[Rfam]
RNA sequence: UCAUCUCGCGAUCCAGCGCUCUGAUGAAAGUCAGCAUUGAACAUAACAAAAGUCUCCCAUUCUUGGGAGACUUUUUAAGCCGUU
Dot-bracket structure: ...............................................(((((((((((......))))))).))))........
Enterobacterial sRNA STnc230: an 84-nucleotide RNA sequence. The family's RNA type in Rfam is small RNA.